[Rfam]
RNA sequence: UUUGCUGCGAGGCAUGCACUGAAGGAAGCGAGACUACAAACUCCGGUACUGACGAACAGGAACGGUAUACUGAGGCUGGCGAAAGAGGAUAAAUGAGCACAACUUCACAAGGUCCGUAACCAACAAUCUUUUAUCAGUAGAUACCGCAGGAAUCGGAAGAAGGAAUAUGCC
Numbered sequence: 001u002u003u004g005c006u007g008c009g010a011g012g013c014a015u016g017c018a019c020u021g022a023a024g025g026a027a028g029c030g031a032g033a034c035u036a037c038a039a040a041c042u043c044c045g046g047u048a049c050u051g052a053c054g055a056a057c058a059g060g061a062a063c064g065g066u067a068u069a070c071u072g073a074g075g076c077u078g079g080c081g082a083a084a085g086a087g088g089a090u091a092a093a094u095g096a097g098c099a100c101a102a103c104u105u106c107a108c109a110a111g112g113u114c115c116g117u118a119a120c121c122a123a124c125a126a127u128c129u130u131u132u133a134u135c136a137g138u139a140g141a142u143a144c145c146g147c148a149g150g151a152a153u154c155g156g157a158a159g160a161a162g163g164a165a166u167a168u169g170c171c
Base pairs, nucleotide, nucleotide: 001016003014004013005012006011028171031168037163042157043156044155045154046153047151049149050148051147063146064145065144066143067142068141075138076137077136079134081132082131083130084129085128086127087115088114089113090112094107095106096105
RNA: Group II catalytic intron D1-D4-3